Rfam assigns this 275-nucleotide sequence from Miscanthus lutarioriparius to the family "MIR821 microRNA precursor family". Rfam 15.1 lists 1,438 matches to the family in 13 species. Its family is annotated with RISC complex and miRNA-mediated post-transcriptional gene silencing in the Gene Ontology. Taxonomically the source falls in Miscanthus (Eukaryota, Embryophyta, Petrosaviidae, Saccharinae).
[Rfam]
RNA sequence: CAUUUCAGCUGAAAAGAUGAUGAACAUAAAAGUUGUAGAACUCAUCGAGAUCUACAACUUUUAUUUUGGUUAUUUCUUUGUCUGACAAAGUGAUAGUAACAUUGUUCACAAAUUUCACAAAUCUCUCUUAUAGUUUAUGAAACUAUAAGAGAGAUAUGUGAAAUUUGUGAACAAUGGUGCUAUCACUUUGUCGGAUGAACAAAUGACCAAAAUAAAAGUUGUAGACCUUGAUCAGUUCUAUAACUUUGUUGUUGAUGACUUUUUCAUUUGAAAUU
Numbered sequence: 001c002a003u004u005u006c007a008g009c010u011g012a013a014a015a016g017a018u019g020a021u022g023a024a025c026a027u028a029a030a031a032g033u034u035g036u037a038g039a040a041c042u043c044a045u046c047g048a049g050a051u052c053u054a055c056a057a058c059u060u061u062u063a064u065u066u067u068g069g070u071u072a073u074u075u076c077u078u079u080g081u082c083u084g085a086c087a088a089a090g091u092g093a094u095a096g097u098a099a100c101a102u103u104g105u106u107c108a109c110a111a112a113u114u115u116c117a118c119a120a121a122u123c124u125c126u127c128u129u130a131u132a133g134u135u136u137a138u139g140a141a142a143c144u145a146u147a148a149g150a151g152a153g154a155u156a157u158g159u160g161a162a163a164u165u166u167g168u169g170a171a172c173a174a175u176g177g178u179g180c181u182a183u184c185a186c187u188u189u190g191u192c193g194g195a196u197g198a199a200c201a202a203a204u205g206a207c208c209a210a211a212a213u214a215a216a217a218g219u220u221g222u223a224g225a226c227c228u229u230g231a232u233c234a235g236u237u238c239u240a241u242a243a244c245u246u247u248g249u250u251g252u253u254g255a256u257g258a259c260u261u262u263u264u265c266a267u268u269u270g271a272a273a274u275u
Stems, first nucleotide, its partner, number of pairs: 014262003018258001020256002023253002026250001030246013044232006051225003055221013069207007077199005083193010094182005101175012114162002117159003121155002131145006